[Rfam]
RNA sequence: UAACUGUUCGUAACACCCCUCAAACCAAGACCUAUAGGGUGUCUAAACACGUCUUUCAUAUCCUUGCCUUAGGGUGGCGAGGAAAUAGUAACUCCA
Dot-bracket structure: .............(((((.(......[[[[[....)))))).........]]]]].....(((((((.........))))))).............